RNA sequence: ACGCACAAGCAGAAGCACCCGCUUCUCACCUUUCGGCUUAAGCUGGCUGGUUCGCGAUAAUCGAUUAGUCAUUCCAUUGUUUCACACUGAAAUAAUGUUCUGACAUAUAUGUACGGUUAUGAGAUGCGGGUUCUAGUGAACCCGCAUUUUUUUAUUGCG
Numbered sequence: 001a002c003g004c005a006c007a008a009g010c011a012g013a014a015g016c017a018c019c020c021g022c023u024u025c026u027c028a029c030c031u032u033u034c035g036g037c038u039u040a041a042g043c044u045g046g047c048u049g050g051u052u053c054g055c056g057a058u059a060a061u062c063g064a065u066u067a068g069u070c071a072u073u074c075c076a077u078u079g080u081u082u083c084a085c086a087c088u089g090a091a092a093u094a095a096u097g098u099u100c101u102g103a104c105a106u107a108u109a110u111g112u113a114c115g116g117u118u119a120u121g122a123g124a125u126g127c128g129g130g131u132u133c134u135a136g137u138g139a140a141c142c143c144g145c146a147u148u149u150u151u152u153u154a155u156u157g158c159g
Base pairs, nucleotide, nucleotide: 011026012025013024014023015022016021028051029050030049033046034045035044036043037042125146126145127144128143129142130141131140132139133138